[Rfam]
RNA sequence: AGAGGUCACAAGUUUGAGGCCAUAACAGAAGUGCUUACAGUGUGGUCUGUCAGAUUCCAACAAAUCUGCAAGUUCUGCU
Numbered sequence: 001a002g003a004g005g006u007c008a009c010a011a012g013u014u015u016g017a018g019g020c021c022a023u024a025a026c027a028g029a030a031g032u033g034c035u036u037a038c039a040g041u042g043u044g045g046u047c048u049g050u051c052a053g054a055u056u057c058c059a060a061c062a063a064a065u066c067u068g069c070a071a072g073u074u075c076u077g078c079u
Stems, first nucleotide, its partner, number of pairs: 018047004024079001026077005031043003051068006
The family of this 79-nucleotide RNA from Alligator mississippiensis is "Mammalian CPEB3 ribozyme".
A search with the family's covariance model found it, with a score of 38 bits.
The family's consensus secondary structure is taken from published work.
A reference for the family is Teixeira et al. (2004), "Autocatalytic RNA cleavage in the human beta-globin pre-mRNA promotes transcription termination", Nature.